RNA sequence: UGUCAUAAUUUAGCCUCUUAUGACGAUUGACUGGAGCCGCAAAAACUGUUCGUGCAGUCUCUGCGGCAUGGAUUAAGCAGGUCCCUGACCUGCUUUUU
Numbered sequence: 001u002g003u004c005a006u007a008a009u010u011u012a013g014c015c016u017c018u019u020a021u022g023a024c025g026a027u028u029g030a031c032u033g034g035a036g037c038c039g040c041a042a043a044a045a046c047u048g049u050u051c052g053u054g055c056a057g058u059c060u061c062u063g064c065g066g067c068a069u070g071g072a073u074u075a076a077g078c079a080g081g082u083c084c085c086u087g088a089c090c091u092g093c094u095u096u097u098u
Base pairs, nucleotide, nucleotide: 001025002024003023004022005021006020007019008018036067037066038065039064040063041062045058046057047056048055049054075095076094077093078092079091080090081089082088083087
RNA: Antisense to pHK01_035